Rfam assigns this 179-nucleotide RNA sequence from Ottowia oryzae to the family "Manganese Mn2+ riboswitch aptamer (yybP-ykoY)".
[Rfam]
RNA sequence: UUUCGCGUCAUCGGGGAGUAGCUGACCUGCGCAAUGCAGGGGCCCUCGUCAACACACUUGGCCCUCACGGCCAUGGCGUGGGCAGCUUCCAAAGCCUGGCAAGACCUUUGACCACUGCGCGUUCUGGAAUUGGGCCGGGGACGCGCCGUGGUUCAUUGGUUAUUUCAGGCCCGGAGAUC
Numbered sequence: 001u002u003u004c005g006c007g008u009c010a011u012c013g014g015g016g017a018g019u020a021g022c023u024g025a026c027c028u029g030c031g032c033a034a035u036g037c038a039g040g041g042g043c044c045c046u047c048g049u050c051a052a053c054a055c056a057c058u059u060g061g062c063c064c065u066c067a068c069g070g071c072c073a074u075g076g077c078g079u080g081g082g083c084a085g086c087u088u089c090c091a092a093a094g095c096c097u098g099g100c101a102a103g104a105c106c107u108u109u110g111a112c113c114a115c116u117g118c119g120c121g122u123u124c125u126g127g128a129a130u131u132g133g134g135c136c137g138g139g140g141a142c143g144c145g146c147c148g149u150g151g152u153u154c155a156u157u158g159g160u161u162a163u164u165u166c167a168g169g170c171c172c173g174g175a176g177a178u179c
Base pairs, nucleotide, nucleotide: 026040027039028038042083043082044081045080047078048077049076050075051074059073060072061071062070063069084178086176087175088174089173
A reference for the family is Argaman et al. (2001), "Novel small RNA-encoding genes in the intergenic regions of Escherichia coli", Curr Biol. The pairing is the family consensus, mapped onto this sequence. The source organism's lineage runs through Bacteria, Pseudomonadati, Pseudomonadota, Comamonadaceae and Ottowia.